Shown here is a 142-nucleotide RNA sequence from Carpinus fangiana, a member of the family "small nucleolar RNA snoR137". Taxonomically the source falls in Carpinus (Eukaryota, Streptophytina, Embryophyta, Pentapetalae). The literature on the family includes a 2009 paper in Nucleic Acids Res by Chen and Wu, "Mining small RNA sequencing data: a new approach to identify small nucleolar RNAs in Arabidopsis". Rfam links the family to the GO terms RNA processing and nucleolus.

RNA sequence: CUUGUUUCAUAGUGAACUCCCCCUUGUUUCAUAGUGGGGGAUGUUCAUGUUUCCGAAACAUAGAUUGAUAUCUUUGCCAGUAUUAUUAAACAGCACUGUGUAUUCUUUUUGAGCACUGUGCUACCUGUCUCCUGGUACAUUU
Number, nucleotide and partner (000 for none) at each position: 001c000002u000003u060004g059005u058006u057007u056008c055009a000010u000011a000012g000013u047014g046015a045016a044017c043018u041019c040020c039021c038022c037023c000024u000025u000026g000027u000028u000029u000030c000031a000032u000033a000034g000035u000036g000037g022038g021039g020040g019041a018042u000043g017044u016045u015046c014047a013048u000049g000050u000051u000052u000053c000054c000055g008056a007057a006058a005059c004060a003061u000062a000063g000064a000065u000066u000067g000068a000069u000070a000071u000072c000073u000074u000075u000076g136077c135078c134079a133080g132081u000082a130083u000084u000085a000086u000087u000088a000089a000090a000091c000092a122093g121094c120095a000096c118097u000098g116099u115100g114101u000102a000103u000104u000105c000106u000107u000108u000109u000110u000111g000112a000113g000114c100115a099116c098117u000118g096119u000120g094121c093122u092123a000124c000125c000126u000127g000128u000129c000130u082131c000132c080133u079134g078135g077136u076137a000138c000139a000140u000141u000142u000